The family of this 147-nucleotide RNA sequence from Zestomonas thermotolerans is "proV RNA". Rfam's curators put it in the seed alignment. Taxonomically the source falls in Zestomonas thermotolerans (Bacteria, Pseudomonadati, Pseudomonadales, Pseudomonadaceae). The family's RNA type in Rfam is small RNA.
RNA sequence: CGUCGCUGCCGGCUCCGUGGGCCGGCAGACCGCGGCUCUCAGCCGCGGACCGAAGAGCAACAAGUGGCCGCCUUCCCCUCUCGACCCGAAGGCAGGCCUAGAAGAAAUUUCGGAAGUACGGGCCUCCAGGAAUGGAGGUCGCAUUCU
Numbered sequence: 001c002g003u004c005g006c007u008g009c010c011g012g013c014u015c016c017g018u019g020g021g022c023c024g025g026c027a028g029a030c031c032g033c034g035g036c037u038c039u040c041a042g043c044c045g046c047g048g049a050c051c052g053a054a055g056a057g058c059a060a061c062a063a064g065u066g067g068c069c070g071c072c073u074u075c076c077c078c079u080c081u082c083g084a085c086c087c088g089a090a091g092g093c094a095g096g097c098c099u100a101g102a103a104g105a106a107a108u109u110u111c112g113g114a115a116g117u118a119c120g121g122g123c124c125u126c127c128a129g130g131a132a133u134g135g136a137g138g139u140c141g142c143a144u145u146c147u
Stems, first nucleotide, its partner, number of pairs: 006028007014021002030048007121140008